[Rfam]
RNA: SAM riboswitch aptamer (S box leader)
Nucleotides: 115
Stems, first nucleotide, its partner, number of pairs: 001115001003113006013042005021031003025082004043074004048070002050066004078107001083104003088099003
Number, partner (000 for none) and nucleotide at each position: 001115c002000a003113c004112u005111c006110a007109u008108c009000g010000a011000g012000a013042c014041c015040g016039g017038c018000u019000g020000a021031g022030g023029g024000a025082c026081a027080g028079g029023c030022c031021c032000u033000u034000u035000g036000a037000a038017g039016c040015c041014g042013g043074g044073g045072c046071a047000a048070c049069c050066u051065g052064c053063g054000g055000a056000g057000c058000g059000a060000u061000u062000c063053c064052g065051c066050g067000a068000c069049g070048g071046u072045g073044c074043c075000a076000a077000c078107u079028c080027c081026u082025g083104c084103g085102g086000a087000a088099g089098c090097g091000c092000u093000a094000a095000g096000g097090c098089g099088c100000a101000g102085c103084c104083g105000a106000g107078a108008g109007a110006u111005g112004g113003g114000g115001g